[Rfam]
RNA sequence: ACUUGUAAAAGGCAAACUAUCUGAAAAGGUAGGACGCAAAGCCUAGGGUCUAAGGUUGAAAGACUAUGAUAGCCUGGUUGCCGAG
Numbered sequence: 001a002c003u004u005g006u007a008a009a010a011g012g013c014a015a016a017c018u019a020u021c022u023g024a025a026a027a028g029g030u031a032g033g034a035c036g037c038a039a040a041g042c043c044u045a046g047g048g049u050c051u052a053a054g055g056u057u058g059a060a061a062g063a064c065u066a067u068g069a070u071a072g073c074c075u076g077g078u079u080g081c082c083g084a085g
Stems, first nucleotide, its partner, number of pairs: 012037002017032006040079004045075003048070003055064003
The family of this 85-nucleotide RNA from Ornithinibacillus bavariensis is "c-di-GMP-I riboswitch aptamer". The source organism's lineage runs through Bacteria, Bacillota, Bacilli, Bacillaceae and Ornithinibacillus. Pairs were carried over by alignment from the consensus structure, which is taken from published work.